[Rfam]
RNA sequence: UACAUGUCUGUUCAAAUACCAAGGAGUUGAUAUAACUCCCUGGCUUCGCUUUCAGACUAGACGAACUUCUUUAAACUUAUCCUAGUGUAAUUGUUUAUCAGUGAAAAUUGCACUGGCAUUUUAAAGAUACAUUU
Numbered sequence: 001u002a003c004a005u006g007u008c009u010g011u012u013c014a015a016a017u018a019c020c021a022a023g024g025a026g027u028u029g030a031u032a033u034a035a036c037u038c039c040c041u042g043g044c045u046u047c048g049c050u051u052u053c054a055g056a057c058u059a060g061a062c063g064a065a066c067u068u069c070u071u072u073a074a075a076c077u078u079a080u081c082c083u084a085g086u087g088u089a090a091u092u093g094u095u096u097a098u099c100a101g102u103g104a105a106a107a108u109u110g111c112a113c114u115g116g117c118a119u120u121u122u123a124a125a126g127a128u129a130c131a132u133u134u
Stems, first nucleotide, its partner, number of pairs: 006057005019043003023039004028034002068127007082116006

Rfam assigns this 134-nucleotide RNA from Danaus chrysippus to the family "Small nucleolar RNA psi28S-1192".
Its family is annotated with nucleolus and RNA processing in the Gene Ontology.
Lineage of the source: Eukaryota > Opisthokonta > Hexapoda > Neoptera > Anosia.
psi28S-1192 is a member of the H/ACA class of snoRNA. This family is responsible for guiding the modification of uridine 1192 to pseudouridine in Drosophila 28S rRNA.